The family of this 52-nucleotide RNA sequence is "6A RNA". Rfam's curators put it in the seed alignment.
RNA sequence: AGAUUUGGUCAUAGAGCGUGACUAAGUAAAAUAAAAGAAAAGCUCACCGAGA
Numbered sequence: 001a002g003a004u005u006u007g008g009u010c011a012u013a014g015a016g017c018g019u020g021a022c023u024a025a026g027u028a029a030a031a032u033a034a035a036a037g038a039a040a041a042g043c044u045c046a047c048c049g050a051g052a
Base pairs, nucleotide, nucleotide: 006024007023008022009021010020011019014045015044016043017042